[Rfam]
RNA sequence: UGACCCCGAUACGACUGGCGGAGAGAGUGGGUAACCACGAGGGAGUAUCGGGGCCAGCGAGAUCGCCGACCGCCUGGGCACUGACA
Dot-bracket structure: ...(((((((((..(([[[[[.....((((....))))..))..)))))))))...........(((..]]]]]..))).......
RNA: ZMP/ZTP riboswitch aptamer (pfl RNA motif)